[Rfam]
RNA sequence: CCCAGCGGCAGUCAGCUGUGCAGGCCAACACCAUGCCUGAACCAGUGUUACUCUGCUGGGAGAUGAACGCACAGCCAGCACGGCGCCACUCAGCAGCUCCCGUUUUGGGGGCCGUCUGAUGCUGGGCCACGGCGAUGCGGCGUUUCCUCUUGAGAGUGGAUUGGCCUGCUGUUAGUUGGGCGCCAUCCUAGUCUGGGAAUGUACACA
Numbered sequence: 001c002c003c004a005g006c007g008g009c010a011g012u013c014a015g016c017u018g019u020g021c022a023g024g025c026c027a028a029c030a031c032c033a034u035g036c037c038u039g040a041a042c043c044a045g046u047g048u049u050a051c052u053c054u055g056c057u058g059g060g061a062g063a064u065g066a067a068c069g070c071a072c073a074g075c076c077a078g079c080a081c082g083g084c085g086c087c088a089c090u091c092a093g094c095a096g097c098u099c100c101c102g103u104u105u106u107g108g109g110g111g112c113c114g115u116c117u118g119a120u121g122c123u124g125g126g127c128c129a130c131g132g133c134g135a136u137g138c139g140g141c142g143u144u145u146c147c148u149c150u151u152g153a154g155a156g157u158g159g160a161u162u163g164g165c166c167u168g169c170u171g172u173u174a175g176u177u178g179g180g181c182g183c184c185a186u187c188c189u190a191g192u193c194u195g196g197g198a199a200u201g202u203a204c205a206c207a
Stems, first nucleotide, its partner, number of pairs: 001060008011051002015046004021039005069138003074133003082128003086124001087121002090119004096113001097111005140202008158188003163183001164181005
A member of the RNA family "Small nucleolar RNA SNORA74" from Denticeps clupeoides, 207 nucleotides long. Rfam describes the family as follows. U19 belongs to the H/ACA class of snoRNAs. snoRNAs bind a number of proteins (including dyskerin, Gar1p and Nop10p in the case of the H/ACA class) to form snoRNP complexes. This class are thought to guide the sites of modification of uridines to pseudouridines by forming direct base pairing interactions with substrate RNAs. It scores 88 bits against the family's covariance model.